Record summary:
mir-16 microRNA precursor family: an 81-nucleotide RNA from Taxus chinensis. The family is grouped with related families in Rfam's "mir-15 clan". Its family is annotated with RISC complex and miRNA-mediated post-transcriptional gene silencing in the Gene Ontology.
RNA sequence: UCCUUGGUGGAGUAGAUAGAAAAUAUUGGCAAGUUUAUAUAUAUGAAACUUGCCAAUAUUUUCUAUCUACUCCACCAAGGA
Dot-bracket structure: (((.(((...((((((((.(.((((((((.......................)))))))))..))))))))...))).)))
The literature on the family includes a 2020 paper in Mol Cell by Jin et al., "Structural Basis for pri-miRNA Recognition by Drosha". Taxonomically the source falls in Taxus (Eukaryota, Acrogymnospermae, Conifers II, Cupressales).